Shown here is a 183-nucleotide sequence from Natronincola ferrireducens, a member of the family "Lysine riboswitch aptamer". It scores 125 bits against the family's covariance model. Lineage of the source: Bacteria > Bacillati > Clostridia > Natronincolaceae > Natronincola.
[Rfam]
RNA sequence: GGAUGGGGUAGAGGCGCGGUGUCUAAAAGUAUACAUACAGAGGUUGGAAGCCUAUGAAGUAUGUUGAAAGGAGCCAUCGCCGAAGUCAUAAGUACCAAAGCUUAUGACUGGGUCUGCAUUAAAUAAAUGCAGAACUGUCAUUAGGAUACAUACCCACUAUCCUAAUGGAGUGCUAUCUCAUGC
Dot-bracket structure: .....((((((....((((((.((........((((((....................)))))).......)).))))))...((((((((((......))))))))))((.((((((((.....)))))))).)).(((((((((((.........)))))))))))....)))))).....